[Rfam]
RNA sequence: AAGUAACUCCGAGUCCCGCGAAGGAUAGGAGUAACGGCUGGUUGGCACAGCCUUCAGUCCAUCUGUUCGAUCGUAGCGAGGGCAGUUUCGCCCCGCGAGAACAGGUCGUGGACUGUAAACCGUAAUAUCCCAACGGCGAUCGGGAUUCCACGUCGUUUACGGCGUGGA
Numbered sequence: 001a002a003g004u005a006a007c008u009c010c011g012a013g014u015c016c017c018g019c020g021a022a023g024g025a026u027a028g029g030a031g032u033a034a035c036g037g038c039u040g041g042u043u044g045g046c047a048c049a050g051c052c053u054u055c056a057g058u059c060c061a062u063c064u065g066u067u068c069g070a071u072c073g074u075a076g077c078g079a080g081g082g083c084a085g086u087u088u089c090g091c092c093c094c095g096c097g098a099g100a101a102c103a104g105g106u107c108g109u110g111g112a113c114u115g116u117a118a119a120c121c122g123u124a125a126u127a128u129c130c131c132a133a134c135g136g137c138g139a140u141c142g143g144g145a146u147u148c149c150a151c152g153u154c155g156u157u158u159a160c161g162g163c164g165u166g167g168a
Stems, first nucleotide, its partner, number of pairs: 003035002007031004013026003036052005055115006062105007080093004128145004133140001147168009